The record is a 79-nucleotide sequence from Ottowia testudinis, which matches "SAH (S-adenosyl-L-homocysteine) riboswitch aptamer" in Rfam.

[Rfam]
RNA sequence: CGGUCCAAGGGGCGCUGCAGCAAUCACCAUACGUGGGUGGUUUGCCAGGCUUGGGUCAGUUUAACGGCGCUCACCUGCA
Numbered sequence: 001c002g003g004u005c006c007a008a009g010g011g012g013c014g015c016u017g018c019a020g021c022a023a024u025c026a027c028c029a030u031a032c033g034u035g036g037g038u039g040g041u042u043u044g045c046c047a048g049g050c051u052u053g054g055g056u057c058a059g060u061u062u063a064a065c066g067g068c069g070c071u072c073a074c075c076u077g078c079a
Base pairs, nucleotide, nucleotide: 002057003056004055005054006053007052008051021044022043023042025040
The literature on the family includes a 2008 paper in Mol Cell by Wang et al., "Riboswitches that sense S-adenosylhomocysteine and activate genes involved in coenzyme recycling". The family's consensus secondary structure is taken from published work.